About this RNA
The family of this 316-nucleotide sequence from Xylaria flabelliformis is "Group I catalytic intron".
RNA sequence: AAAGGGGGGUUCAAUCUUGAUCACUAAAGGCGAAGUGAACCUUUGUCUAGUCUUAUAUAAGGCGAAACUCUCAAAUUGCGGGAAACUCUUAAGAAUAAAUCUACCAAGUUAAUAUAGUAAUAUAAUUAAUGGAACAGGUAAUGACUCGUUGUAUGGUAAAAACGAUUUGUAUAUGUAGAAAAUCUGCAGCCAAGCACCUAGUAUUCUAAGGAAUAAAGGUGUACAGUUCAUCGGCUAAACGUGAGUUGGUUUUUUAUUAGUAAAAGAUAUUAAUAAUUAGCUUAAGAUAUAGUCAGUCUCAAUAUAUGAGUAUUGG
Numbered sequence: 001a002a003a004g005g006g007g008g009g010u011u012c013a014a015u016c017u018u019g020a021u022c023a024c025u026a027a028a029g030g031c032g033a034a035g036u037g038a039a040c041c042u043u044u045g046u047c048u049a050g051u052c053u054u055a056u057a058u059a060a061g062g063c064g065a066a067a068c069u070c071u072c073a074a075a076u077u078g079c080g081g082g083a084a085a086c087u088c089u090u091a092a093g094a095a096u097a098a099a100u101c102u103a104c105c106a107a108g109u110u111a112a113u114a115u116a117g118u119a120a121u122a123u124a125a126u127u128a129a130u131g132g133a134a135c136a137g138g139u140a141a142u143g144a145c146u147c148g149u150u151g152u153a154u155g156g157u158a159a160a161a162a163c164g165a166u167u168u169g170u171a172u173a174u175g176u177a178g179a180a181a182a183u184c185u186g187c188a189g190c191c192a193a194g195c196a197c198c199u200a201g202u203a204u205u206c207u208a209a210g211g212a213a214u215a216a217a218g219g220u221g222u223a224c225a226g227u228u229c230a231u232c233g234g235c236u237a238a239a240c241g242u243g244a245g246u247u248g249g250u251u252u253u254u255u256a257u258u259a260g261u262a263a264a265a266g267a268u269a270u271u272a273a274u275a276a277u278u279a280g281c282u283u284a285a286g287a288u289a290u291a292g293u294c295a296g297u298c299u300c301a302a303u304a305u306a307u308g309a310g311u312a313u314u315g316g
Stems, first nucleotide, its partner, number of pairs: 005025001007024001009022001011020003066247005072241001077188006087179003189227002194222004202215005231295001233294005249281003254276004301314005
Dot-bracket structure: ....(.(.(.(((....))).).))........................................(((((.(....((((((....(((.......................................................................................)))...))))))((...((((....(((((....)))))...))))...))...[.[[[[[...).))))).(((..((((...............))))..)))........]]]]]].....(((((....)))))..
Group I catalytic introns are large self-splicing ribozymes. They catalyse their own excision from mRNA, tRNA and rRNA precursors in a wide range of organisms. The core secondary structure consists of 9 paired regions (P1-P9).
The organism belongs to Xylaria, within Eukaryota.